[Rfam]
RNA sequence: UAGAACAAUGUAGAUAAGGGAAGUCAGCAAAAUAGAUCCAUAACUUUGGGAAAAGGAUUGGCUCUAAGGGUUGGGUGUGUCAGGCCUUGGCUGGAAGCCUCAGGACCCAGCUGGGACUGCUUGGGGGGCAACCUCUGGGUGGACCUGGCCAGGACUUGGGUGUAGAUGGCCUUGGCUGCCCUUCAUGGGACGUCCGGUGCAUGCUUAACAACCAACUUAGAACUGGUACAGACAAGGGGAAUCUGACUGUCUAAUUAAAACAUACCAUUGCAAUGGCCAGAAAGUGGUGUUGAUGCAAUGAGAUUUCUGCCCAGUACUCUGAAUGUCAAAGUGAAGAAAUUCAACCAAGCAUGGGUAAAUGGUGGGAGUAACUAUGACUCUCUUAAGGUAGCCAAAUGCCUUGUCAUCUAACUAGUGACACGCAUGAAUGGAUUAACAAGAUUUCUACUGUCUCUAUCUACUAUUUAGCGAAACCACAGCCAAGGGAAUGGGCUUGGCAGA
Numbered sequence: 001u002a003g004a005a006c007a008a009u010g011u012a013g014a015u016a017a018g019g020g021a022a023g024u025c026a027g028c029a030a031a032a033u034a035g036a037u038c039c040a041u042a043a044c045u046u047u048g049g050g051a052a053a054a055g056g057a058u059u060g061g062c063u064c065u066a067a068g069g070g071u072u073g074g075g076u077g078u079g080u081c082a083g084g085c086c087u088u089g090g091c092u093g094g095a096a097g098c099c100u101c102a103g104g105a106c107c108c109a110g111c112u113g114g115g116a117c118u119g120c121u122u123g124g125g126g127g128g129c130a131a132c133c134u135c136u137g138g139g140u141g142g143a144c145c146u147g148g149c150c151a152g153g154a155c156u157u158g159g160g161u162g163u164a165g166a167u168g169g170c171c172u173u174g175g176c177u178g179c180c181c182u183u184c185a186u187g188g189g190a191c192g193u194c195c196g197g198u199g200c201a202u203g204c205u206u207a208a209c210a211a212c213c214a215a216c217u218u219a220g221a222a223c224u225g226g227u228a229c230a231g232a233c234a235a236g237g238g239g240a241a242u243c244u245g246a247c248u249g250u251c252u253a254a255u256u257a258a259a260a261c262a263u264a265c266c267a268u269u270g271c272a273a274u275g276g277c278c279a280g281a282a283a284g285u286g287g288u289g290u291u292g293a294u295g296c297a298a299u300g301a302g303a304u305u306u307c308u309g310c311c312c313a314g315u316a317c318u319c320u321g322a323a324u325g326u327c328a329a330a331g332u333g334a335a336g337a338a339a340u341u342c343a344a345c346c347a348a349g350c351a352u353g354g355g356u357a358a359a360u361g362g363u364g365g366g367a368g369u370a371a372c373u374a375u376g377a378c379u380c381u382c383u384u385a386a387g388g389u390a391g392c393c394a395a396a397u398g399c400c401u402u403g404u405c406a407u408c409u410a411a412c413u414a415g416u417g418a419c420a421c422g423c424a425u426g427a428a429u430g431g432a433u434u435a436a437c438a439a440g441a442u443u444u445c446u447a448c449u450g451u452c453u454c455u456a457u458c459u460a461c462u463a464u465u466u467a468g469c470g471a472a473a474c475c476a477c478a479g480c481c482a483a484g485g486g487a488a489u490g491g492g493c494u495u496g497g498c499a500g501a
Base pairs, nucleotide, nucleotide: 001467002466003465004464010461011460012459013458014457015456016455018453019452020451035059036058037057038056039055044049060224061223063221064220065219066218067217068216069213070212071211072210073209075202076201077200078199079198080197081196083194084176085175086174089171090170091169097163098162100159101158102157103156104155106153107152110149111148112147113146114145115144117142118141119140120139121138122137123136124135125134126133127132225229237446238445239444240443241442242441243440244438245437248262249261250260266300267299268298269297270296271295272294276288277287278286279285305432306431307430309363310362311361314360315359316356317355318354319353321352324351325350326349332343333342334341335340364382365381366380367379368378369377383387403419404418405417406416407415480497481496482495483494484493
Rfam assigns this 501-nucleotide part of an RNA from Leucoagaricus sp. SymC.cos to the family "Eukaryotic large subunit ribosomal RNA". The match comes from Rfam's covariance-model search (3004 bits). A reference for the family is Cannone et al. (2002), "The comparative RNA web (CRW) site: an online database of comparative sequence and structure information for ribosomal, intron, and other RNAs", BMC Bioinformatics. The organism belongs to Leucoagaricus, within Eukaryota.